Shown here is a 91-nucleotide RNA from Callithrix jacchus, a member of the family "mir-1324 microRNA precursor family".
Its family is annotated with RISC complex and miRNA-mediated post-transcriptional gene silencing in the Gene Ontology.
RNA sequence: CCUGAACAGCUGCAUGCAGCCUGGCCCUGCCCUCACUGGGAAACCCCUUUCUCCUGGAUACUAGACAGAGUUCUGUUCACUUUCCUGGAGG
Numbered sequence: 001c002c003u004g005a006a007c008a009g010c011u012g013c014a015u016g017c018a019g020c021c022u023g024g025c026c027c028u029g030c031c032c033u034c035a036c037u038g039g040g041a042a043a044c045c046c047c048u049u050u051c052u053c054c055u056g057g058a059u060a061c062u063a064g065a066c067a068g069a070g071u072u073c074u075g076u077u078c079a080c081u082u083u084c085c086u087g088g089a090g091g
Stems, first nucleotide, its partner, number of pairs: 001091003008082002011079002014076002016073001018071001021064004029059001031057002038052005